[Rfam]
RNA sequence: ACUGCUUUUCUUUGAAAUUCCCGUAUUGAGGAGCCCGUUAAUUUACUGAUUAACGGGUUUUUUUCA
Numbered sequence: 001a002c003u004g005c006u007u008u009u010c011u012u013u014g015a016a017a018u019u020c021c022c023g024u025a026u027u028g029a030g031g032a033g034c035c036c037g038u039u040a041a042u043u044u045a046c047u048g049a050u051u052a053a054c055g056g057g058u059u060u061u062u063u064u065c066a
Base pairs, nucleotide, nucleotide: 032059033058034057035056036055037054038053039052040051041050042049043048